[Rfam]
RNA sequence: UAAGUUGAUAGAGGCGCGGUUGAUAAGAGUACCUUGCGGAGGCGGUAGCCAAGGAAGUAAGGGAAAGGAGAGAUCGCCGAAGGGCAAGUCAGACAUGAUGAGUUUCUGGGCCAGGGUAAAACAUACGCUGGACUCCUGCCGGACUAUUUCGACAGAGGUGCUAUCGAUUGC
Numbered sequence: 001u002a003a004g005u006u007g008a009u010a011g012a013g014g015c016g017c018g019g020u021u022g023a024u025a026a027g028a029g030u031a032c033c034u035u036g037c038g039g040a041g042g043c044g045g046u047a048g049c050c051a052a053g054g055a056a057g058u059a060a061g062g063g064a065a066a067g068g069a070g071a072g073a074u075c076g077c078c079g080a081a082g083g084g085c086a087a088g089u090c091a092g093a094c095a096u097g098a099u100g101a102g103u104u105u106c107u108g109g110g111c112c113a114g115g116g117u118a119a120a121a122c123a124u125a126c127g128c129u130g131g132a133c134u135c136c137u138g139c140c141g142g143a144c145u146a147u148u149u150c151g152a153c154a155g156a157g158g159u160g161c162u163a164u165c166g167a168u169u170g171c
Stems, first nucleotide, its partner, number of pairs: 006166006016077006024069001032062006081107003084103002088099004108134002111131004116126003136155003140151003
About this RNA
Rfam assigns this 171-nucleotide RNA sequence from Aminipila butyrica to the family "Lysine riboswitch aptamer". The family's consensus secondary structure is taken from published work.